RNA sequence: UGAUGAAUAUGAUGAAAGUAAUAAAAGGUAUUAAUGAAAUUUCUUCAAUUUAUUUAUAAUAGUCUUUGCUACGUUCUUUCUUAUUCAUUC
Numbered sequence: 001u002g003a004u005g006a007a008u009a010u011g012a013u014g015a016a017a018g019u020a021a022u023a024a025a026a027g028g029u030a031u032u033a034a035u036g037a038a039a040u041u042u043c044u045u046c047a048a049u050u051u052a053u054u055u056a057u058a059a060u061a062g063u064c065u066u067u068g069c070u071a072c073g074u075u076c077u078u079u080c081u082u083a084u085u086c087a088u089u090c
Stems, first nucleotide, its partner, number of pairs: 004087004
A member of the RNA family "Small nucleolar RNA R32/R81/Z41" from Coffea arabica, 90 nucleotides long. Rfam 15.1 lists 238 matches to the family in 139 species. It is annotated as a C/D-box small nucleolar RNA. The family's consensus secondary structure was predicted with PFOLD. A search with the family's covariance model found it, with a score of 48 bits. For this family Rfam cites "Identification of 66 box C/D snoRNAs in Arabidopsis thaliana: extensive gene duplications generated multiple isoforms predicting new ribosomal RNA 2'-O-methylation sites" (Barneche et al., J Mol Biol, 2001).